c-di-AMP riboswitch aptamer (ydaO/yuaA leader): a 152-nucleotide sequence from Geodermatophilus dictyosporus.
Lineage of the source: Bacteria > Bacillati > Actinomycetota > Geodermatophilaceae > Geodermatophilus.

[Rfam]
RNA sequence: CACCGGAUGCCGCCGAAUCGCGCUCCCGAGCGCGAGCCGGGGACCCACCAGCACCACCGGGGUGAGUCCCGCUCCCGGCGAUCCCGGCAGCGGGUAGGGCACUCCCAGCCCGAACCCGUCAGCUCACCCGGUAGGCGGCCAGGGGAGGAACG
Numbered sequence: 001c002a003c004c005g006g007a008u009g010c011c012g013c014c015g016a017a018u019c020g021c022g023c024u025c026c027c028g029a030g031c032g033c034g035a036g037c038c039g040g041g042g043a044c045c046c047a048c049c050a051g052c053a054c055c056a057c058c059g060g061g062g063u064g065a066g067u068c069c070c071g072c073u074c075c076c077g078g079c080g081a082u083c084c085c086g087g088c089a090g091c092g093g094g095u096a097g098g099g100c101a102c103u104c105c106c107a108g109c110c111c112g113a114a115c116c117c118g119u120c121a122g123c124u125c126a127c128c129c130g131g132u133a134g135g136c137g138g139c140c141a142g143g144g145g146a147g148g149a150a151c152g
Stems, first nucleotide, its partner, number of pairs: 011137004018035006036132006046059001060117003068094006097111004
Its family is annotated with regulation of gene expression and cyclic-di-AMP binding in the Gene Ontology.